[Rfam]
RNA sequence: GCCGGGCAUGGUGGUGCGCGCCCGUAGUUCCAGCCACUCUGGAGGCUGAGGCAGGAGGAUCGCUUGAGCCCAGGAGUUCUGGGAUGUAGUGCGCUAUGCCCAUCGGCAUCCACACUAAGUUCGGCAUCAAUAUGGUGACCUCCCAGGAGUGGGGGACCACCAGGUUGCCUAAGGAGGGGUGAACCGGCCCAGGUCGGAAAUGGAACAGGUCAAAACUCCUGUGCUGAUCAGUAGUAGGAUCGCGCCUAUGAAUAGUCACUACACUCCCGGCCUGGGCAACAUAGUGAGAUCCCGUCUCUA
Dot-bracket structure: (((((((.((......)).))))....(((..........)))))).(((((.(((...(((((...(((((((....(((((((((((((.(((((.(..((.(((.(((..((((.(.(((((((((((.(((((..((((((....))))))..))))).))))((...))((((((.....((((....(((....)))....))))...))))))))))))).)..)))).))...).))).))).)))))))))))).))))))))))))).....)))))..))).)))))..